About this RNA:
The record is a 65-nucleotide RNA from Myotis brandtii, which matches "mir-9242 microRNA precursor family" in Rfam.

[Rfam]
RNA sequence: GGCCUCCCUCUGCGGGGGCGAUCGAUCUGGGGGCCCCACAAUUGAUCGCCCCACAGAGGGAGGCC
Number, nucleotide and partner (000 for none) at each position: 001g065002g064003c063004c062005u061006c060007c059008c058009u057010c056011u055012g054013c000014g052015g051016g000017g050018g049019c048020g047021a046022u045023c044024g043025a042026u041027c000028u000029g000030g037031g036032g000033g000034c000035c000036c031037c030038a000039c000040a000041a026042u025043u024044g023045a022046u021047c020048g019049c018050c017051c015052c014053a000054c012055a011056g010057a009058g008059g007060g006061a005062g004063g003064c002065c001